[Rfam]
RNA sequence: UUCUCCAAUUCGAAACUGCCGGACGCCCAGGCAAUGAACGAAGGCACCAUGUCGAUGCUGUCGGCUGUGCAUUCAGGAGCCAAUUUCAUUCUCCAUUCGG
Numbered sequence: 001u002u003c004u005c006c007a008a009u010u011c012g013a014a015a016c017u018g019c020c021g022g023a024c025g026c027c028c029a030g031g032c033a034a035u036g037a038a039c040g041a042a043g044g045c046a047c048c049a050u051g052u053c054g055a056u057g058c059u060g061u062c063g064g065c066u067g068u069g070c071a072u073u074c075a076g077g078a079g080c081c082a083a084u085u086u087c088a089u090u091c092u093c094c095a096u097u098c099g100g
Base pairs, nucleotide, nucleotide: 003012025032034061035060077098079096